[Rfam]
The record is a 96-nucleotide RNA sequence from Hordeivirus hordei, which matches "Pseudoknot of tRNA-like structure" in Rfam. The family's consensus secondary structure is taken from published work. The family's RNA type in Rfam is cis-regulatory element. The literature on the family includes a 1984 paper in Nucleic Acids Res by Kozlov YuV et al., "Nucleotide sequence of the 3'-terminal tRNA-like structure in barley stripe mosaic virus genome".
RNA sequence: AUUGGUAUGUAAGCUACAACUUCCGGUAGCUGCGUCACACUUUAAGAGUGUGCAUACUGAGCCGAAGCUCAGCUUCGGUCCCCCAAGGGAAGACCA
Dot-bracket structure: .((((((((..((((((..[[[[[.))))))....((((((.....)))))))))))))).((((((.....)))))).........]]]]]....